[Rfam]
RNA sequence: AGUUCUGAUGCACCAAAUUUGCAGGUGGAGAACGAGGAGACAACUGAGGCACAAAGUGCCCGGACAAGGAAGCGCAGUUGGAUGAGAAUCCAACUGCGCUUUUAA
Numbered sequence: 001a002g003u004u005c006u007g008a009u010g011c012a013c014c015a016a017a018u019u020u021g022c023a024g025g026u027g028g029a030g031a032a033c034g035a036g037g038a039g040a041c042a043a044c045u046g047a048g049g050c051a052c053a054a055a056g057u058g059c060c061c062g063g064a065c066a067a068g069g070a071a072g073c074g075c076a077g078u079u080g081g082a083u084g085a086g087a088a089u090c091c092a093a094c095u096g097c098g099c100u101u102u103u104a105a
Base pairs, nucleotide, nucleotide: 002033003032004031005030009029011027012026013025014024039065044063045062046061048060049059050058051057052056069102070101071100072099073098074097075096076095077094078093079092080091081090082089
A member of the RNA family "Burkholderia sRNA 1" from Paraburkholderia eburnea, 105 nucleotides long. The literature on the family includes a 2017 paper in Sci Rep by Sass et al., "Identification of small RNAs abundant in Burkholderia cenocepacia biofilms reveal putative regulators with a potential role in carbon and iron metabolism". It scores 81 bits against the family's covariance model. About the family: Identified by RNA-seq, RACE and Northern blot. Strongly expressed in biofilm.